[Rfam]
RNA sequence: AGACCCUAACGGGUCCCUAGCCAACUGACGUUGUUAGUGAACAUAGUAUUCACAAAAGAAGCCAAUAACUGUUUGUUAUUGGCUAUUUUUUU
Numbered sequence: 001a002g003a004c005c006c007u008a009a010c011g012g013g014u015c016c017c018u019a020g021c022c023a024a025c026u027g028a029c030g031u032u033g034u035u036a037g038u039g040a041a042c043a044u045a046g047u048a049u050u051c052a053c054a055a056a057a058g059a060a061g062c063c064a065a066u067a068a069c070u071g072u073u074u075g076u077u078a079u080u081g082g083c084u085a086u087u088u089u090u091u092u
Stems, first nucleotide, its partner, number of pairs: 002015005031059002034056001037053005043047001062082008

Rfam assigns this 92-nucleotide RNA sequence from Vibrio xiamenensis to the family "Qrr RNA". Rfam describes the family as follows. This family represents a set of small RNAs (the Qrr RNAs) that are thought to be involved in the regulation of quorum sensing in Vibrio species. By type it is a small RNA. The source organism's lineage runs through Bacteria, Pseudomonadati, Pseudomonadota, Gammaproteobacteria and Vibrio. The family's consensus secondary structure is taken from published work.